[Rfam]
RNA sequence: AGUGGCUGACCUGGUAGAGUGGUGUGGAGUUGGUGGUGGCCAUGUUCUACCAGCCAGGGACAACACAAGCCCUGUUCAUCUCAGGUUUGCUCUGGUCUGUGCCCAACCUGGGUCAUGCUGUGGACACAUGA
Numbered sequence: 001a002g003u004g005g006c007u008g009a010c011c012u013g014g015u016a017g018a019g020u021g022g023u024g025u026g027g028a029g030u031u032g033g034u035g036g037u038g039g040c041c042a043u044g045u046u047c048u049a050c051c052a053g054c055c056a057g058g059g060a061c062a063a064c065a066c067a068a069g070c071c072c073u074g075u076u077c078a079u080c081u082c083a084g085g086u087u088u089g090c091u092c093u094g095g096u097c098u099g100u101g102c103c104c105a106a107c108c109u110g111g112g113u114c115a116u117g118c119u120g121u122g123g124a125c126a127c128a129u130g131a
Stems, first nucleotide, its partner, number of pairs: 002061002006057003011053004017046002021040001023038003073126006089118002093115003097111003101107001
Small nucleolar RNA SNORA48: a 131-nucleotide RNA from Heterocephalus glaber. The family's consensus secondary structure was predicted with RNAalifold. The match comes from Rfam's covariance-model search (63 bits). By type it is an H/ACA-box small nucleolar RNA. About the family: The snoRNA ACA 48 has been identified to guide pseudouridylation of the residue U3797 in the 28S rRNA subunit. Gene Ontology terms of the family: RNA processing and nucleolus.